Bacterial large subunit ribosomal RNA: a 587-nucleotide part of an RNA from Sulfurimonas aquatica. Lineage of the source: Bacteria > Pseudomonadati > Campylobacterales > Sulfurimonadaceae > Sulfurimonas. Pairs were carried over by alignment from the consensus structure, which is taken from published work. The match comes from Rfam's covariance-model search (2822 bits).
[Rfam]
RNA sequence: CCCGCGGAAAGACGGAAAGACCCCGUGCACCUUUACUAUAGCUUGACACUGCUAUUGGGAUAUUCAUGUGCAGGAUAGGUGGGAGCCUUUGAUUCAUAGACGCCAGUUUAUGAUGAGGCAUCCUUGAGAUACCACCCUUGAAUAUUCUGAUAGCUAACUCCGUACAAUUAUCUUGUGCGAGGACAAUGUCUGGUGGGUAGUUUGACUGGGGCGGUCGCCUCCUAAAAAGUAACGGAGGCUUACAAAGUUCGGCUCAGGUGGGUUGGAAAUCCACCGUAGAGUAUAAUGGCAUAAGCCGGACUGACUGUGAGACAUACAAGUCGAGCAGAGUCGAAAGACGGUCAUAGUGAUCCGGUGGUUCUGUGUGGAAGGGCCAUCGCUCAAAGGAUAAAAGGUACGCCGGGGAUAACAGGCUGAUCUCCCCCAAGAGCUCACAUCGACGGGGAGGUUUGGCACCUCGAUGUCGGCUCAUCGCAUCCUGGGGCUGGAGCAGGUCCCAAGGGUAUGGCUGUUCGCCAUUUAAAGCGGUACGCGAGCUGGGUUCAGAACGUCGUGAGACAGUUCGGUCCCUAUCUUCCGUGGGCGUA
Numbered sequence: 001c002c003c004g005c006g007g008a009a010a011g012a013c014g015g016a017a018a019g020a021c022c023c024c025g026u027g028c029a030c031c032u033u034u035a036c037u038a039u040a041g042c043u044u045g046a047c048a049c050u051g052c053u054a055u056u057g058g059g060a061u062a063u064u065c066a067u068g069u070g071c072a073g074g075a076u077a078g079g080u081g082g083g084a085g086c087c088u089u090u091g092a093u094u095c096a097u098a099g100a101c102g103c104c105a106g107u108u109u110a111u112g113a114u115g116a117g118g119c120a121u122c123c124u125u126g127a128g129a130u131a132c133c134a135c136c137c138u139u140g141a142a143u144a145u146u147c148u149g150a151u152a153g154c155u156a157a158c159u160c161c162g163u164a165c166a167a168u169u170a171u172c173u174u175g176u177g178c179g180a181g182g183a184c185a186a187u188g189u190c191u192g193g194u195g196g197g198u199a200g201u202u203u204g205a206c207u208g209g210g211g212c213g214g215u216c217g218c219c220u221c222c223u224a225a226a227a228a229g230u231a232a233c234g235g236a237g238g239c240u241u242a243c244a245a246a247g248u249u250c251g252g253c254u255c256a257g258g259u260g261g262g263u264u265g266g267a268a269a270u271c272c273a274c275c276g277u278a279g280a281g282u283a284u285a286a287u288g289g290c291a292u293a294a295g296c297c298g299g300a301c302u303g304a305c306u307g308u309g310a311g312a313c314a315u316a317c318a319a320g321u322c323g324a325g326c327a328g329a330g331u332c333g334a335a336a337g338a339c340g341g342u343c344a345u346a347g348u349g350a351u352c353c354g355g356u357g358g359u360u361c362u363g364u365g366u367g368g369a370a371g372g373g374c375c376a377u378c379g380c381u382c383a384a385a386g387g388a389u390a391a392a393a394g395g396u397a398c399g400c401c402g403g404g405g406a407u408a409a410c411a412g413g414c415u416g417a418u419c420u421c422c423c424c425c426a427a428g429a430g431c432u433c434a435c436a437u438c439g440a441c442g443g444g445g446a447g448g449u450u451u452g453g454c455a456c457c458u459c460g461a462u463g464u465c466g467g468c469u470c471a472u473c474g475c476a477u478c479c480u481g482g483g484g485c486u487g488g489a490g491c492a493g494g495u496c497c498c499a500a501g502g503g504u505a506u507g508g509c510u511g512u513u514c515g516c517c518a519u520u521u522a523a524a525g526c527g528g529u530a531c532g533c534g535a536g537c538u539g540g541g542u543u544c545a546g547a548a549c550g551u552c553g554u555g556a557g558a559c560a561g562u563u564c565g566g567u568c569c570c571u572a573u574c575u576u577c578c579g580u581g582g583g584c585g586u587a
Base pairs, nucleotide, nucleotide: 001583002582003581004580005579006578007577008576010575011574012573014570015569022404023403024402025401027400028399029396030395031394032393033392035201036200037199038198042193043192045190046189047188048187051154052153053152054151055150056149057148058147059146060145061144062143063142064141065140066139068137078136079135080134081133082132085119086118087117094113095112096111097110098109099108100107101106158181159180160179162178163177164176165175166174167173204216205215206214207213217239218238219237220236221235222234240385242342243341248300249299250298251297252296253295254280255279257275258274259273260272261271262270281290282289305328306327307326308325311322312321313320330339331338332337353379354378355377356376357375358374359373361372362371413454414453415452417451418448419447420446421445422444423443424442428438429437465540466538467537468536469535470532471529472528473527474526475525478503479502481498482497483496484495485494486493505519506518507517508516509515546564547563548562549561550559551558552557
Dot-bracket structure: ((((((((.(((.((......((((.(((((((.((((...((.((((..((((((((((((((((.(.........(((((..(((......((((((((....))))))))...)))............)))))).))))))))))))))))...(((.((((((.....))))))))).....)))).))....))))..((((.....))))((((((...........))))))(.((....((((((((.((((((.......))))))...))((......))....))))))....((((..(((......)))..)))).(((....))).))..........(((((((.((........))))))))).....)......)))))..))))))........(((.((((((((...((.......))...)))))))..))))..........(((((((((((..((.((((((......))))))...)).(((((.....))))).....)))))..)..)))).).....(((((((....))).))))....))..)))))))))))....